[Rfam]
This 107-nucleotide sequence from Sorghum bicolor belongs to the Rfam family "MIR5565 microRNA precursor family". Rfam 15.1 lists 3,346 matches to the family in 5 species. It scores 80 bits against the family's covariance model.
RNA sequence: AAACAGAGAUAUAUCAAUUCACAUGUAUUGAGGUGGGUUGGAGUGGAAGUUGAACUAAAUUCCACCCUAAUCCACAUCAACACAUGUGGAUUGAGGUGAAUUCGACA
Numbered sequence: 001a002a003a004c005a006g007a008g009a010u011a012u013a014u015c016a017a018u019u020c021a022c023a024u025g026u027a028u029u030g031a032g033g034u035g036g037g038u039u040g041g042a043g044u045g046g047a048a049g050u051u052g053a054a055c056u057a058a059a060u061u062c063c064a065c066c067c068u069a070a071u072c073c074a075c076a077u078c079a080a081c082a083c084a085u086g087u088g089g090a091u092u093g094a095g096g097u098g099a100a101u102u103c104g105a106c107a
Stems, first nucleotide, its partner, number of pairs: 004104001006102002010098003014094013028080003033075009043065003